mir-92 microRNA precursor family: a 77-nucleotide sequence from Cyclopterus lumpus. Its family is annotated with RISC complex and miRNA-mediated post-transcriptional gene silencing in the Gene Ontology. The literature on the family includes a 2002 paper in Genes Dev by Mourelatos et al., "miRNPs: a novel class of ribonucleoproteins containing numerous microRNAs". Rfam describes the family as follows. This family represents the microRNA precursor mir-92. Human miR-92 has two predicted hairpin precursor sequences: mir-92-1 on chromosome 13 and mir-92-2 on chromosome X. miR-92 has also been cloned from mouse embryonic stem cells. Clan: mir-92 microRNA precursor clan.
[Rfam]
RNA sequence: CCUCCUGUGAAGGUGAGGAUUAGUAGCAAUGCUGCGUACCUCGAGGUAUUGCACUUGUCCCGUCCUGUAUAGGAACA
Numbered sequence: 001c002c003u004c005c006u007g008u009g010a011a012g013g014u015g016a017g018g019a020u021u022a023g024u025a026g027c028a029a030u031g032c033u034g035c036g037u038a039c040c041u042c043g044a045g046g047u048a049u050u051g052c053a054c055u056u057g058u059c060c061c062g063u064c065c066u067g068u069a070u071a072g073g074a075a076c077a
Stems, first nucleotide, its partner, number of pairs: 004073003009068001011066003017060004022055003026052008

Pairs were carried over by alignment from the consensus structure, which was predicted with PFOLD. The match comes from Rfam's covariance-model search (53 bits).